[Rfam]
The record is a 147-nucleotide sequence from Bacteroides fragilis, which matches "Bacteroidete tryptophan peptide leader RNA" in Rfam. NCBI's taxonomy places the organism under Bacteria, Pseudomonadati, Bacteroidia, Bacteroidaceae, Bacteroides fragilis. The base pairs follow the family's consensus structure, which is taken from published work. Rfam classes the family as a cis-regulatory leader.
RNA sequence: CCGUUAAAUAACAAUUAGCAAUGAUGACAAUGCAAGUAAAUACAUAUUGGUGGUGGCGCCCGUUACAACUCCGACAGUCGUAAGGGAGCAGCGCUCGUAUGUAUAUACCUCAUUAAAGAUAUAACAGAAUUUAGAAAGAGCCCUGUC
Numbered sequence: 001c002c003g004u005u006a007a008a009u010a011a012c013a014a015u016u017a018g019c020a021a022u023g024a025u026g027a028c029a030a031u032g033c034a035a036g037u038a039a040a041u042a043c044a045u046a047u048u049g050g051u052g053g054u055g056g057c058g059c060c061c062g063u064u065a066c067a068a069c070u071c072c073g074a075c076a077g078u079c080g081u082a083a084g085g086g087a088g089c090a091g092c093g094c095u096c097g098u099a100u101g102u103a104u105a106u107a108c109c110u111c112a113u114u115a116a117a118g119a120u121a122u123a124a125c126a127g128a129a130u131u132u133a134g135a136a137a138g139a140g141c142c143c144u145g146u147c
Base pairs, nucleotide, nucleotide: 036108037107038106040104041103042102043101044100045099046098047097049095050094051093052092056089057088059086060085061084066080068078069077070076